Record summary: Shown here is an 85-nucleotide sequence from Carpinus fangiana, a member of the family "Small nucleolar RNA Z159/U59". Rfam 15.1 lists 1,401 matches to the family in 272 species. The literature on the family includes a 2003 paper in Nucleic Acids Res by Chen et al., "The high diversity of snoRNAs in plants: identification and comparative study of 120 snoRNA genes from Oryza sativa". Rfam links the family to the GO terms RNA processing and nucleolus. Clan: SNORD59 clan.

[Rfam]
RNA sequence: GCCUCUUGAGGAUGAAUAAAAAAUAACUUUCGUUCUUCCGAGAUGUCCCAUGCGGAAAAUUUUUGGAGACCUGAACUGAAGAGGC
Numbered sequence: 001g002c003c004u005c006u007u008g009a010g011g012a013u014g015a016a017u018a019a020a021a022a023a024u025a026a027c028u029u030u031c032g033u034u035c036u037u038c039c040g041a042g043a044u045g046u047c048c049c050a051u052g053c054g055g056a057a058a059a060u061u062u063u064u065g066g067a068g069a070c071c072u073g074a075a076c077u078g079a080a081g082a083g084g085c
Stems, first nucleotide, its partner, number of pairs: 003083004